[Rfam]
RNA sequence: AAUGGUGAGUAGUCGCGGCUCAUGGUUCACAUGAGUUGAGGAAAGUCCAGGCUCGCCCGGUGCUGAGAUGCCCGGAGUGUUCUUGCCAUCUGUAAAGGUGGGCAGCAGACUUCGUAUCUGCUGACGGCGGAGAAAUCACGCUAAGUCCAACAGGGAUAUGCUGAGAGUAACCUUAAAGUGCCACAGUGACGAAUUCUUCUGGAAACGGAAGAAGUGGAACGAGGUAAACCCCAAGAGCGAGCAACCCAAAUUUAGGUAGGGGCACCAUCCGGCGGGAAUAAUCAACCAAAAGGAUGGAUUGAUUGAAUAAAUCAAUAGUUAUAUGACUGCACCUGGUUGUGCGAGAUUGGCAUCGUUAUUAGCACACAGGAACAAAACCUGGCUUAUAGCC
Numbered sequence: 001a002a003u004g005g006u007g008a009g010u011a012g013u014c015g016c017g018g019c020u021c022a023u024g025g026u027u028c029a030c031a032u033g034a035g036u037u038g039a040g041g042a043a044a045g046u047c048c049a050g051g052c053u054c055g056c057c058c059g060g061u062g063c064u065g066a067g068a069u070g071c072c073c074g075g076a077g078u079g080u081u082c083u084u085g086c087c088a089u090c091u092g093u094a095a096a097g098g099u100g101g102g103c104a105g106c107a108g109a110c111u112u113c114g115u116a117u118c119u120g121c122u123g124a125c126g127g128c129g130g131a132g133a134a135a136u137c138a139c140g141c142u143a144a145g146u147c148c149a150a151c152a153g154g155g156a157u158a159u160g161c162u163g164a165g166a167g168u169a170a171c172c173u174u175a176a177a178g179u180g181c182c183a184c185a186g187u188g189a190c191g192a193a194u195u196c197u198u199c200u201g202g203a204a205a206c207g208g209a210a211g212a213a214g215u216g217g218a219a220c221g222a223g224g225u226a227a228a229c230c231c232c233a234a235g236a237g238c239g240a241g242c243a244a245c246c247c248a249a250a251u252u253u254a255g256g257u258a259g260g261g262g263c264a265c266c267a268u269c270c271g272g273c274g275g276g277a278a279u280a281a282u283c284a285a286c287c288a289a290a291a292g293g294a295u296g297g298a299u300u301g302a303u304u305g306a307a308u309a310a311a312u313c314a315a316u317a318g319u320u321a322u323a324u325g326a327c328u329g330c331a332c333c334u335g336g337u338u339g340u341g342c343g344a345g346a347u348u349g350g351c352a353u354c355g356u357u358a359u360u361a362g363c364a365c366a367c368a369g370g371a372a373c374a375a376a377a378c379c380u381g382g383c384u385u386a387u388a389g390c391c
Base pairs, nucleotide, nucleotide: 004391005390006389007387009330010329011328012327013326014325016038017037018036019035020034021033043385044384045383047382048381049380050379051378052241053240054239055238056237057075058074059073060072062071063070081236082235083234084233085232086101087100088099089098090097091096102125103123104122105121106120107119108118126231127230129172130171137163138162140161141160145157146156147155178229179228180225181224182223194213195212196211197210198209199208200207201206245261246260247259265297266296267295268294269293270292298316299315300314301313302312303311333370334369336367337366339365340364341363342362
The record is a 391-nucleotide RNA from Peribacillus asahii, which matches "Bacterial RNase P class B" in Rfam.
The family's consensus secondary structure is taken from published work.
Rfam classes the family as a ribozyme.
Rfam links the family to the GO terms tRNA processing, ribonuclease P activity and dimeric ribonuclease P complex.
A reference for the family is Frank and Pace (1998), "Ribonuclease P: unity and diversity in a tRNA processing ribozyme", Annu Rev Biochem.
Lineage of the source: Bacteria > Bacillati > Caryophanales > Bacillaceae > Peribacillus.